[Rfam]
The family of this 458-nucleotide RNA sequence from Pteruthius melanotis is "Vertebrate telomerase RNA".
Rfam 15.1 lists 523 matches to the family in 477 species.
Gene Ontology terms of the family: telomerase activity, telomerase catalytic core complex and telomere maintenance via telomerase.
Rfam describes the family as follows. Telomerase is a ribonucleoprotein reverse transcriptase that synthesises telomeric DNA. Telomerase RNAs differ greatly in sequence and structure between vertebrates, ciliates and yeasts, but they share a 5' pseudoknot structure close to the template sequence.
NCBI's taxonomy places the organism under Eukaryota, Deuterostomia, Craniata, Sauria, Pteruthius.
By type it is a non-coding RNA gene.
A search with the family's covariance model found it, with a score of 150 bits.
Clan: Telomerase clan.

RNA sequence: CGUGCCGGGGUGGGCAGGCCCUGCGGCCAACUAACCCUAAUGGCGGCUGAGUCCCUCACGCCCGCCCGCUGUUUUACUCGCUGACUUUCAGCGGGCAAAGGGAGCGGCCCUAGGAAUGGGGGAGGGGGAAGGGGAGGGGAGAGAGCUUCGGCCUCAAAAAAAGCCAGCGAGGGGAUCCACACCCCGGCCCACCUUGGGGUCCCUGUCCCUCCUCCGCAUCCGGGGAUGCGCCCUCCGUCGCCCUUUGUAGAGGCCGCGGUCGGCAGGCUCAGCGCCACUACCGCCGCGAAGAGUUCGUCUCUGUCAGCCUUGGCGACGGACGGGACCGGAGGCCCUGCCCGCCCACCUUGGGCAGCCGAGGGACCCCAGCAGAUCAAAACGGGGGCGGCGCCGCCGAGCGCUGAGCAGCCGCGGCUCCCUCAGAUGUGGGGUGCGCGGUCGGUGCCGCCCCGACACCC
Numbered sequence: 001c002g003u004g005c006c007g008g009g010g011u012g013g014g015c016a017g018g019c020c021c022u023g024c025g026g027c028c029a030a031c032u033a034a035c036c037c038u039a040a041u042g043g044c045g046g047c048u049g050a051g052u053c054c055c056u057c058a059c060g061c062c063c064g065c066c067c068g069c070u071g072u073u074u075u076a077c078u079c080g081c082u083g084a085c086u087u088u089c090a091g092c093g094g095g096c097a098a099a100g101g102g103a104g105c106g107g108c109c110c111u112a113g114g115a116a117u118g119g120g121g122g123a124g125g126g127g128g129a130a131g132g133g134g135a136g137g138g139g140a141g142a143g144a145g146c147u148u149c150g151g152c153c154u155c156a157a158a159a160a161a162a163g164c165c166a167g168c169g170a171g172g173g174g175a176u177c178c179a180c181a182c183c184c185c186g187g188c189c190c191a192c193c194u195u196g197g198g199g200u201c202c203c204u205g206u207c208c209c210u211c212c213u214c215c216g217c218a219u220c221c222g223g224g225g226a227u228g229c230g231c232c233c234u235c236c237g238u239c240g241c242c243c244u245u246u247g248u249a250g251a252g253g254c255c256g257c258g259g260u261c262g263g264c265a266g267g268c269u270c271a272g273c274g275c276c277a278c279u280a281c282c283g284c285c286g287c288g289a290a291g292a293g294u295u296c297g298u299c300u301c302u303g304u305c306a307g308c309c310u311u312g313g314c315g316a317c318g319g320a321c322g323g324g325a326c327c328g329g330a331g332g333c334c335c336u337g338c339c340c341g342c343c344c345a346c347c348u349u350g351g352g353c354a355g356c357c358g359a360g361g362g363a364c365c366c367c368a369g370c371a372g373a374u375c376a377a378a379a380c381g382g383g384g385g386c387g388g389c390g391c392c393g394c395c396g397a398g399c400g401c402u403g404a405g406c407a408g409c410c411g412c413g414g415c416u417c418c419c420u421c422a423g424a425u426g427u428g429g430g431g432u433g434c435g436c437g438g439u440c441g442g443u444g445c446c447g448c449c450c451c452g453a454c455a456c457c458c
Stems, first nucleotide, its partner, number of pairs: 004188009014178001016176001019174004052103005064096008080168004085163001086161003194369007225333001227331001232322001234320009255288005261283003266276003290302004383450010409438005416431004